[Rfam]
RNA: c-di-GMP-I riboswitch aptamer
Organism: Methylomusa anaerophila
Nucleotides: 093
Stems, first nucleotide, its partner, number of pairs: 012038002017033004022028001041087004046083003049078003056072002
Number, partner (000 for none) and nucleotide at each position: 001000u002000a003000g004000a005000a006000a007000a008000a009000u010000a011000g012038g013037c014000a015000a016000a017033c018032u019031u020030a021000u022028c023000c024000g025000a026000a027000a028022g029000c030020u031019a032018a033017g034000g035000g036000c037013g038012c039000a040000a041087a042086g043085c044084c045000a046083u047082g048081g049078g050077u051076c052000u053000a054000a055000g056072g057071g058000a059000c060000g061000a062000a063000c064000u065000a066000a067000g068000g069000a070000g071057c072056c073000u074000a075000u076051g077050a078049u079000u080000g081048c082047c083046a084044g085043g086042u087041u088000g089000c090000g091000a092000u093000u